The record is a 124-nucleotide RNA from Gossypium aridum, which matches "MIR7504 microRNA precursor family" in Rfam. Rfam links the family to the GO terms miRNA-mediated post-transcriptional gene silencing and RISC complex. A search with the family's covariance model found it, with a score of 117 bits. Taxonomically the source falls in Gossypium (Eukaryota, Tracheophyta, Pentapetalae, malvids).
RNA sequence: AAUAGGAGCAUGACAAAUAAGAUUUUUCCUUCUGAUUUUCAACUUUUUCCUCCUGAAAAAAUUCAAAUCCAACUAAAAAUACUAAAAAUCAAGAGGAAAAAAUAUAAUUUGUCAUGCUCCUAUU
Numbered sequence: 001a002a003u004a005g006g007a008g009c010a011u012g013a014c015a016a017a018u019a020a021g022a023u024u025u026u027u028c029c030u031u032c033u034g035a036u037u038u039u040c041a042a043c044u045u046u047u048u049c050c051u052c053c054u055g056a057a058a059a060a061a062u063u064c065a066a067a068u069c070c071a072a073c074u075a076a077a078a079a080u081a082c083u084a085a086a087a088a089u090c091a092a093g094a095g096g097a098a099a100a101a102a103u104a105u106a107a108u109u110u111g112u113c114a115u116g117c118u119c120c121u122a123u124u
Base pairs, nucleotide, nucleotide: 001124002123003122004121005120006119007118008117009116010115011114012113013112014111015110016109017108018107020105022103023101024100025099026098027097029095030094031093033091034090035089036088037087038086039085041083045079046078047077048076
Dot-bracket structure: ((((((((((((((((((.(.((((((.(((.(((((((.(...((((...........................))))...).))))))).))).))))).).).))))))))))))))))))